Rfam assigns this 301-nucleotide RNA from Solanum commersonii to the family "Plant signal recognition particle RNA". A reference for the family is Wild et al. (2002), "Towards the structure of the mammalian signal recognition particle", Curr Opin Struct Biol. Lineage of the source: Eukaryota > Streptophyta > Mesangiospermae > Solanales > Solanum.
RNA sequence: GCUGAGCUCAGUAGCGUGGGCUUGUAACUCAAGUGAGGGCGUUAGUGUGGUGGAAUGUUGAGCAUGUCCAGAAGGUAGGACUUGUGUGACAAUUCUCUGGCCUGCCCUGUCCAAGCACAGAGUUGGGUCUUGUGGUCCAAGCGAAGGCUUGGGCUACUGGGCCCACUGUAGUGGGGUGGACUGCGUGAGGCUGGUUUCACAGAGCAACGAAUAGCUCCCGCUCUGUGCAGUGGAAGGAUAAUGGGCCAGUGUCAUACAAGUUCAUUGAAGGAAAAAUUACAUAAGUGAAGGCCUUUUAUUU
Numbered sequence: 001g002c003u004g005a006g007c008u009c010a011g012u013a014g015c016g017u018g019g020g021c022u023u024g025u026a027a028c029u030c031a032a033g034u035g036a037g038g039g040c041g042u043u044a045g046u047g048u049g050g051u052g053g054a055a056u057g058u059u060g061a062g063c064a065u066g067u068c069c070a071g072a073a074g075g076u077a078g079g080a081c082u083u084g085u086g087u088g089a090c091a092a093u094u095c096u097c098u099g100g101c102c103u104g105c106c107c108u109g110u111c112c113a114a115g116c117a118c119a120g121a122g123u124u125g126g127g128u129c130u131u132g133u134g135g136u137c138c139a140a141g142c143g144a145a146g147g148c149u150u151g152g153g154c155u156a157c158u159g160g161g162c163c164c165a166c167u168g169u170a171g172u173g174g175g176g177u178g179g180a181c182u183g184c185g186u187g188a189g190g191c192u193g194g195u196u197u198c199a200c201a202g203a204g205c206a207a208c209g210a211a212u213a214g215c216u217c218c219c220g221c222u223c224u225g226u227g228c229a230g231u232g233g234a235a236g237g238a239u240a241a242u243g244g245g246c247c248a249g250u251g252u253c254a255u256a257c258a259a260g261u262u263c264a265u266u267g268a269a270g271g272a273a274a275a276a277u278u279a280c281a282u283a284a285g286u287g288a289a290g291g292c293c294u295u296u297u298a299u300u301u
Base pairs, nucleotide, nucleotide: 001040002039003038004023005022006021007020008019009018010017028037029036030035045301047299048298049297050296052294053293056287057286058284059283060282065281066280070277076271078263079262080261081260082259083258084257085256087254088253089252092250097249098248099247100246101245102244103243104242106237107236110234111233112232113231115228116227117226118225119224120223121222122221123220125164126163127162128161129160130159132157133156134155135154136153137152138151139150140149141148142147166171173218174217175216176215177214182211184209185208186207191202192201193200
Description: Its Rfam clan is "SRP clan".